[Rfam]
RNA sequence: UGUCACGAGUGCCAGCGCACAGCCCCGGCUUGCUGGCCGGCAACCCUCCCACCGCGGCGGGGUGCCCCGGGUGAGGACACGGCCGGCUGCGAUCCCGCAGCGGCAAGCGCGGGCU
Numbered sequence: 001u002g003u004c005a006c007g008a009g010u011g012c013c014a015g016c017g018c019a020c021a022g023c024c025c026c027g028g029c030u031u032g033c034u035g036g037c038c039g040g041c042a043a044c045c046c047u048c049c050c051a052c053c054g055c056g057g058c059g060g061g062g063u064g065c066c067c068c069g070g071g072u073g074a075g076g077a078c079a080c081g082g083c084c085g086g087c088u089g090c091g092a093u094c095c096c097g098c099a100g101c102g103g104c105a106a107g108c109g110c111g112g113g114c115u
Stems, first nucleotide, its partner, number of pairs: 001079004009038001011037006021030002039066003044062003048057002082104004087100005
RNA: SAM (S-adenosyl methionine) riboswitch aptamer
Organism: Nakamurella leprariae